[Rfam]
RNA sequence: AAGACUAUACUUUCAGGGAUCAUUUCUAUAGGUUGUACCUGGUGAAAUGUGCUCGAAAGUGUCUGAACUCACAAACCACGAGGAAGAGCGUCAGUGUUUUCUCCUGAGCGUGAAGUGAGCUCACAGUGCUGCUUCAUUGUGGCUGCUGUUUGCUAUUGAUGAACGUUCUGCUCCCCUUUAUUAUUGGGGAGAUAGAGGGAGAGAACACAAGCUGAGUGG
Dot-bracket structure: .((..((..((...((((.....))))..))..))...))..........(..(......).)............((((..............((((((((((((..(((.......(((...(((((((((......))))).))))...))).........)))..((((((((.........)))))).))..)))))))))))).......))))